Description: The record is a 130-nucleotide sequence from Myotis myotis, which matches "Small nucleolar RNA SNORA24" in Rfam. The base pairs follow the family's consensus structure, which was predicted with RNAfold. A search with the family's covariance model found it, with a score of 134 bits. The organism belongs to Myotis, within Eukaryota. It is annotated as an H/ACA-box small nucleolar RNA.
[Rfam]
RNA sequence: CUCCAUGUGUCUUUGGGACCUGUCACUGUGGCAGUCUCCCUUCCUAGCCAUGGAAAAGCAUUUUCUUGAGUAUUGGCAAAGCUGUCACCACUUAAUUGGUAUCAGAUUCUGACUUGCAAAAGUAACACUC
Numbered sequence: 001c002u003c004c005a006u007g008u009g010u011c012u013u014u015g016g017g018a019c020c021u022g023u024c025a026c027u028g029u030g031g032c033a034g035u036c037u038c039c040c041u042u043c044c045u046a047g048c049c050a051u052g053g054a055a056a057a058g059c060a061u062u063u064u065c066u067u068g069a070g071u072a073u074u075g076g077c078a079a080a081g082c083u084g085u086c087a088c089c090a091c092u093u094a095a096u097u098g099g100u101a102u103c104a105g106a107u108u109c110u111g112a113c114u115u116g117c118a119a120a121a122g123u124a125a126c127a128c129u130c
Base pairs, nucleotide, nucleotide: 002054003053004052005051006050007049015040016039017038018037020034021033022032023031024030067127068126073121074120076117077116078115079114082105083104084103087100088099089098090097